The record is an 87-nucleotide RNA sequence from Spirodela intermedia, which matches "Small nucleolar RNA Z122" in Rfam. The literature on the family includes a 2003 paper in Nucleic Acids Res by Chen et al., "The high diversity of snoRNAs in plants: identification and comparative study of 120 snoRNA genes from Oryza sativa". Its family is annotated with RNA processing and nucleolus in the Gene Ontology. It is annotated as a C/D-box small nucleolar RNA.
RNA sequence: CUUGGGAAAUGAUGAUAUCACAGAUUAGAAUCAAGAGAACACCUAUAUCUGUGCUGAAUGAUUUUUGCACGUCAGUCUGAUCCCAAA
Numbered sequence: 001c002u003u004g005g006g007a008a009a010u011g012a013u014g015a016u017a018u019c020a021c022a023g024a025u026u027a028g029a030a031u032c033a034a035g036a037g038a039a040c041a042c043c044u045a046u047a048u049c050u051g052u053g054c055u056g057a058a059u060g061a062u063u064u065u066u067g068c069a070c071g072u073c074a075g076u077c078u079g080a081u082c083c084c085a086a087a
Base pairs, nucleotide, nucleotide: 002086003085004084005083006082007081